[Rfam]
RNA sequence: AGUAAAUACUGGCUCCCUAGCUGAAUUGCCUAACCCAGCAUGGUAUGGUGUUCAGCCGAUCGGUAUAGCUGGAAACGGCUAUGUCUCCCUUUUGGAAAGGAGCAAUUUUCAGGCAGCG
Numbered sequence: 001a002g003u004a005a006a007u008a009c010u011g012g013c014u015c016c017c018u019a020g021c022u023g024a025a026u027u028g029c030c031u032a033a034c035c036c037a038g039c040a041u042g043g044u045a046u047g048g049u050g051u052u053c054a055g056c057c058g059a060u061c062g063g064u065a066u067a068g069c070u071g072g073a074a075a076c077g078g079c080u081a082u083g084u085c086u087c088c089c090u091u092u093u094g095g096a097a098a099g100g101a102g103c104a105a106u107u108u109u110c111a112g113g114c115a116g117c118g
Stems, first nucleotide, its partner, number of pairs: 003112001006109001012103004017099001020056007028049003035043003062085010087095002
This 118-nucleotide RNA sequence from Sporomusa acidovorans belongs to the Rfam family "Molybdenum/Tungsten riboswitch aptamer (Moco RNA motif)". A search with the family's covariance model found it, with a score of 56 bits.